A member of the RNA family "LOOT RNA", 125 nucleotides long. By type it is a small RNA.
[Rfam]
RNA sequence: CACCUAAACCUAAUUAUUUUUUAAUUAAGCAUGGUGCUAAAUCCGCUAUAGAGACGAGAGCUCCUCGUCACAAUACUGUAGCGGUCAGUAGCCGAAAGGUUGCUGGGGAAUCUGAAAGGAUAACC
Number, nucleotide and partner (000 for none) at each position: 001c036002a035003c034004c033005u000006a000007a000008a000009c029010c000011u027012a026013a025014u024015u023016a000017u000018u000019u000020u000021u000022u000023a015024a014025u013026u012027a011028a000029g009030c000031a000032u000033g004034g003035u002036g001037c000038u000039a000040a000041a000042u000043c084044c083045g082046c081047u080048a079049u078050a077051g076052a000053g069054a068055c067056g066057a065058g064059a000060g000061c000062u000063c000064c058065u057066c056067g055068u054069c053070a000071c000072a000073a000074u000075a000076c051077u050078g049079u048080a047081g046082c045083g044084g043085u000086c105087a104088g103089u102090a101091g100092c099093c098094g000095a000096a000097a000098g093099g092100u091101u090102g089103c088104u087105g086106g125107g124108g000109a000110a121111u120112c119113u118114g000115a000116a000117a000118g113119g112120a111121u110122a000123a000124c107125c106